[Rfam]
Rfam assigns this 92-nucleotide RNA from Salmo salar to the family "mir-146 microRNA precursor family".
Taxonomically the source falls in Salmo (Eukaryota, Actinopteri, Euteleosteomorpha, Salmonidae).
The family's consensus secondary structure was predicted with WAR.

RNA sequence: AGAGGUGUUGUGCCCUGAGAACUGAAUUCCAUAGAUGGUGGCUACAGGAGAUGUCAUCUAUGGGCUCAGUUCUUCUGGCAAGGCACUGCUUA
Numbered sequence: 001a002g003a004g005g006u007g008u009u010g011u012g013c014c015c016u017g018a019g020a021a022c023u024g025a026a027u028u029c030c031a032u033a034g035a036u037g038g039u040g041g042c043u044a045c046a047g048g049a050g051a052u053g054u055c056a057u058c059u060a061u062g063g064g065c066u067c068a069g070u071u072c073u074u075c076u077g078g079c080a081a082g083g084c085a086c087u088g089c090u091u092a
Base pairs, nucleotide, nucleotide: 008083009082011080012079013078018073019072020071021070022069023068024067025066033059034058035057036056